[Rfam]
RNA sequence: GUAGAUUGCUCAUCCUACUUAUUAUGACAGCUUUGCUUCAUAAACCCAGGGAUGACGCAAAGCCAAUAAUUGGUGCCUAUUGUCCAAUUUAGAUGAACAAGAACUGAUUUCUUCUCAUCAACUCGUGGACGUAACGUUGAGUGAGGCACUAUCCGUCUGUAGACCUGAUUGUAUAUUUACACCUGCCAAGAAUGGGCAGGUGUUUUUUU
Numbered sequence: 001g002u003a004g005a006u007u008g009c010u011c012a013u014c015c016u017a018c019u020u021a022u023u024a025u026g027a028c029a030g031c032u033u034u035g036c037u038u039c040a041u042a043a044a045c046c047c048a049g050g051g052a053u054g055a056c057g058c059a060a061a062g063c064c065a066a067u068a069a070u071u072g073g074u075g076c077c078u079a080u081u082g083u084c085c086a087a088u089u090u091a092g093a094u095g096a097a098c099a100a101g102a103a104c105u106g107a108u109u110u111c112u113u114c115u116c117a118u119c120a121a122c123u124c125g126u127g128g129a130c131g132u133a134a135c136g137u138u139g140a141g142u143g144a145g146g147c148a149c150u151a152u153c154c155g156u157c158u159g160u161a162g163a164c165c166u167g168a169u170u171g172u173a174u175a176u177u178u179a180c181a182c183c184u185g186c187c188a189a190g191a192a193u194g195g196g197c198a199g200g201u202g203u204u205u206u207u208u209u
Stems, first nucleotide, its partner, number of pairs: 001063002007059003010055004015051002018049001020042002028035001072150007082130005092119004155164003179203009
RNA: GlmZ RNA activator of glmS mRNA
Organism: Providencia sneebia